[Rfam]
RNA: tRNA
RNA sequence: GGCAGGUUUGCAGAGCGGCCAAAUGCAUCUGACUGUAAAUCAGACGGGUAACCUUCGGGGGUUCAAAUCCCUCACCUGCCA
Numbered sequence: 001g002g003c004a005g006g007u008u009u010g011c012a013g014a015g016c017g018g019c020c021a022a023a024u025g026c027a028u029c030u031g032a033c034u035g036u037a038a039a040u041c042a043g044a045c046g047g048g049u050a051a052c053c054u055u056c057g058g059g060g061g062u063u064c065a066a067a068u069c070c071c072u073c074a075c076c077u078g079c080c081a
Base pairs, nucleotide, nucleotide: 001080002079003078004077005076006075007074010026011025012024028044029043030042031041032040057073058072059071060070061069